[Rfam]
RNA sequence: UCAUCCCGGACGGGAGAGUCCCGCACAGCCGCGGGCGCCGAAGGAGCAACCUCUCCCCGGAAUCUCUCAGGCACACGGACCGUACGGGACAG
Numbered sequence: 001u002c003a004u005c006c007c008g009g010a011c012g013g014g015a016g017a018g019u020c021c022c023g024c025a026c027a028g029c030c031g032c033g034g035g036c037g038c039c040g041a042a043g044g045a046g047c048a049a050c051c052u053c054u055c056c057c058c059g060g061a062a063u064c065u066c067u068c069a070g071g072c073a074c075a076c077g078g079a080c081c082g083u084a085c086g087g088g089a090c091a092g
Stems, first nucleotide, its partner, number of pairs: 006087003010083004020035004037072003040068002044066003050060002
RNA: Glycine riboswitch aptamer
Organism: Actinocrinis puniceicyclus